[Rfam]
About this RNA
A member of the RNA family "small Cajal body-specific RNA 17" from Cnephaeus nilssonii, 144 nucleotides long. Rfam describes the family as follows. scaRNAs are a specific class of small nuclear RNAs which localise to the Cajal bodies and guide the modification of RNA polymerase II transcribed spliceosomal RNAs U1, U2, U4, U5 and U12. Gene Ontology terms of the family: Cajal body, nucleolus and RNA processing. A search with the family's covariance model found it, with a score of 78 bits. The source organism's lineage runs through Eukaryota, Eumetazoa, Dipnotetrapodomorpha, Boreoeutheria and Cnephaeus. The family has 6 seed sequences and 262 matches in Rfam 15.1. The literature on the family includes a 2002 paper in EMBO J by Darzacq et al., "Cajal body-specific small nuclear RNAs: a novel class of 2'-O-methylation and pseudouridylation guide RNAs".
RNA sequence: UCCCUAGGUCCCCAAUGCAGCCCCCAGAUGAACCCACAGUAUUUUCCUUAUAUGACUGGGCCCCUUAUAUAAUUGGCAGCGAUGCUUGCCCAGAGCCUAAGAGGAUUAUAACAGGUCAGGCGAACCGGGGAGCGGGACAGAGAA
Numbered sequence: 001u002c003c004c005u006a007g008g009u010c011c012c013c014a015a016u017g018c019a020g021c022c023c024c025c026a027g028a029u030g031a032a033c034c035c036a037c038a039g040u041a042u043u044u045u046c047c048u049u050a051u052a053u054g055a056c057u058g059g060g061c062c063c064c065u066u067a068u069a070u071a072a073u074u075g076g077c078a079g080c081g082a083u084g085c086u087u088g089c090c091c092a093g094a095g096c097c098u099a100a101g102a103g104g105a106u107u108a109u110a111a112c113a114g115g116u117c118a119g120g121c122g123a124a125c126c127g128g129g130g131a132g133c134g135g136g137a138c139a140g141a142g143a144a
Stems, first nucleotide, its partner, number of pairs: 001144001003142001005141001008138005021130004057099005063093001073088001075086004